RNA sequence: UUUGUUGCCUACAGAACUUAUAACGAACAUGGUUCUUGCCUUUUACCAGAACCAUCCGGGUGCUGUCUCCACUUAAACAGGUAAAGCUGUCCGUUACUGUGGCUCCUCGCAUUUUUUGGAAC
Number, nucleotide and partner (000 for none) at each position: 001u000002u000003u079004g078005u077006u076007g000008c000009c000010u000011a066012c065013a064014g063015a000016a061017c060018u059019u000020a000021u000022a000023a000024c000025g000026a000027a000028c000029a055030u054031g053032g052033u051034u050035c049036u048037u000038g000039c000040c000041u000042u000043u000044u000045a000046c000047c000048a036049g035050a034051a033052c032053c031054a030055u029056c000057c000058g000059g018060g017061u016062g000063c014064u013065g012066u011067c000068u000069c000070c000071a000072c000073u000074u000075a000076a006077a005078c004079a003080g000081g000082u000083a000084a000085a000086g000087c000088u000089g000090u000091c000092c000093g000094u000095u000096a000097c000098u000099g000100u000101g122102g000103c000104u120105c119106c118107u000108c000109g000110c000111a000112u000113u000114u000115u000116u000117u000118g106119g105120a104121a000122c101